[Rfam]
RNA sequence: AGAGUCGGCCAGGCGGUCGCGGCACCGGUUCGGUGUCGAGGAAAGUCCGGACUCCGCAGGGCAGGGUGGUCGGUAACGCCGACCCGGGGCGACCCGCGGGAAAGUGCCACAGAAAACAGACCGCCACCGCUUGCGGUGGUAAGGGUGAAACGGUGGGGUAAGAGCCCACCAGCGGUCGGAGCGAUCCGGCCGGCUUGGCAAACCCCACCCGGAGCAAGGUCAAGAAGGGGGACCCCGGUCCCCCACGCGGACGUUCGAGGGCGGCCCGCCCGAGGUCCGCGGGUAGACCGCACCGAGGCUGCCGGAAACGGCAGUCCCAGAUGGAUGGCCGCCGUGGUCCACCGGACCGCACAGAAUCCGGCUUACCGGCCGACUCUUCCC
Numbered sequence: 001a002g003a004g005u006c007g008g009c010c011a012g013g014c015g016g017u018c019g020c021g022g023c024a025c026c027g028g029u030u031c032g033g034u035g036u037c038g039a040g041g042a043a044a045g046u047c048c049g050g051a052c053u054c055c056g057c058a059g060g061g062c063a064g065g066g067u068g069g070u071c072g073g074u075a076a077c078g079c080c081g082a083c084c085c086g087g088g089g090c091g092a093c094c095c096g097c098g099g100g101a102a103a104g105u106g107c108c109a110c111a112g113a114a115a116a117c118a119g120a121c122c123g124c125c126a127c128c129g130c131u132u133g134c135g136g137u138g139g140u141a142a143g144g145g146u147g148a149a150a151c152g153g154u155g156g157g158g159u160a161a162g163a164g165c166c167c168a169c170c171a172g173c174g175g176u177c178g179g180a181g182c183g184a185u186c187c188g189g190c191c192g193g194c195u196u197g198g199c200a201a202a203c204c205c206c207a208c209c210c211g212g213a214g215c216a217a218g219g220u221c222a223a224g225a226a227g228g229g230g231g232a233c234c235c236c237g238g239u240c241c242c243c244c245a246c247g248c249g250g251a252c253g254u255u256c257g258a259g260g261g262c263g264g265c266c267c268g269c270c271c272g273a274g275g276u277c278c279g280c281g282g283g284u285a286g287a288c289c290g291c292a293c294c295g296a297g298g299c300u301g302c303c304g305g306a307a308a309c310g311g312c313a314g315u316c317c318c319a320g321a322u323g324g325a326u327g328g329c330c331g332c333c334g335u336g337g338u339c340c341a342c343c344g345g346a347c348c349g350c351a352c353a354g355a356a357u358c359c360g361g362c363u364u365a366c367c368g369g370c371c372g373a374c375u376c377u378u379c380c381c
Stems, first nucleotide, its partner, number of pairs: 001377010012333007020038008043364003047361005052214004059267004064210005069083005084098001085096004099205002104203002106199003121144002123140007152170006172194001173192008218289004228280001230278004259271004297316008
Dot-bracket structure: ((((((((((.(((((((.((((((((...))))))))....[[[.[[[[[((((...[[[[.((((((((((.....)))))(((((....)))).)((...(((((............(((((((((....)))))))..)).......((((((.......)))))).(((((((((....)))))))).)..)))..)))))))))))))...((((......(.((((.........................((((.]]]]))))...)))).).....)))).......((((((((....))))))))..........))))))).......................]]]]]]]]...))))))))))....

Source information:
The record is a 381-nucleotide RNA sequence from Lipingzhangella halophila, which matches "Bacterial RNase P class A" in Rfam. By type it is a ribozyme.